[Rfam]
RNA: Small nucleolar RNA snR191
Organism: Ascochyta lentis
RNA sequence: CCCCCAUUUUAAGUCAAGGACCUAUUCGUUUUCCUCGCGAAAUCCUCUCCAUGAACUGGUUCUGUUACAAACUGGGAAGAUUGAGACCGACUCGCUUUCCCAACGCCGUCUUGGCUGCGGGUGGACGGCUUCCGUUUUGGUCGCUGUCGCUAGAGUUUAGAGUGAUUGUUUGAGUUGAGGGCCGACUCCGCCUCGCGGGUUCUUGUGGCGGUCCUCUUAGUAACGCUUCACACAUGC
Numbered sequence: 001c002c003c004c005c006a007u008u009u010u011a012a013g014u015c016a017a018g019g020a021c022c023u024a025u026u027c028g029u030u031u032u033c034c035u036c037g038c039g040a041a042a043u044c045c046u047c048u049c050c051a052u053g054a055a056c057u058g059g060u061u062c063u064g065u066u067a068c069a070a071a072c073u074g075g076g077a078a079g080a081u082u083g084a085g086a087c088c089g090a091c092u093c094g095c096u097u098u099c100c101c102a103a104c105g106c107c108g109u110c111u112u113g114g115c116u117g118c119g120g121g122u123g124g125a126c127g128g129c130u131u132c133c134g135u136u137u138u139g140g141u142c143g144c145u146g147u148c149g150c151u152a153g154a155g156u157u158u159a160g161a162g163u164g165a166u167u168g169u170u171u172g173a174g175u176u177g178a179g180g181g182c183c184g185a186c187u188c189c190g191c192c193u194c195g196c197g198g199g200u201u202c203u204u205g206u207g208g209c210g211g212u213c214c215u216c217u218u219a220g221u222a223a224c225g226c227u228u229c230a231c232a233c234a235u236g237c
Base pairs, nucleotide, nucleotide: 001076002075003074017063018062019061020060021059022058025055026054027053029041030040031039033037087160089157090156091155092154093153099121100120101119105115106114107113124148125147126146127145128144132140133139134138162231163230164229165228167225168224169223177216178215179214180213181209182208183207184206187199188198189197190196191195